Record summary: Shown here is a 112-nucleotide sequence from Zhihengliuella flava, a member of the family "TPP riboswitch aptamer (THI element)". Taxonomically the source falls in Zhihengliuella (Bacteria, Bacillati, Actinomycetes, Micrococcaceae). Rfam describes the family as follows. Vitamin B(1) in its active form thiamin pyrophosphate (TPP) is an essential coenzyme that is synthesised by coupling of pyrimidine and thiazole moieties in bacteria. The previously detected thiamin-regulatory element, thi box was extended, resulting in a new, highly conserved RNA secondary structure, the THI element, which is widely distributed in eubacteria and also occurs in some archaea. Analysis of operon structures identified a large number of new candidate thiamin-regulated genes, mostly transporters, in various prokaryotic organisms. The THI element is a riboswitch that directly binds to TPP to regulate gene expression through a variety of mechanisms in archaea, bacteria and eukaryotes. through a variety of mechanisms in archaea, bacteria and eukaryotes. A search with the family's covariance model found it, with a score of 61 bits.
[Rfam]
RNA sequence: GGCGCGUUCCGUGGGAGCCCGAACCGGGCUGAGAGGGCGCCGAGGCAGGUAGGCGCCGACCACCACACCUGAUGCGGGUCAUGCCGCCGUAGGGAGGAAAAUGCCGCACGUC
Number, nucleotide and partner (000 for none) at each position: 001g000002g000003c000004g000005c000006g000007u099008u098009c097010c096011g063012u062013g061014g060015g000016a000017g029018c028019c027020c026021g025022a000023a000024c000025c021026g020027g019028g018029c017030u000031g000032a000033g000034a000035g000036g057037g056038c055039g054040c053041c000042g000043a000044g000045g000046c000047a000048g000049g000050u000051a000052g000053g040054c039055g038056c037057c036058g000059a000060c014061c013062a012063c011064c000065a000066c000067a000068c093069c092070u091071g090072a000073u000074g087075c086076g085077g084078g000079u000080c000081a000082u000083g000084c077085c076086g075087c074088c000089g000090u071091a070092g069093g068094g000095a000096g010097g009098a008099a007100a000101a000102u000103g000104c000105c000106g000107c000108a000109c000110g000111u000112c000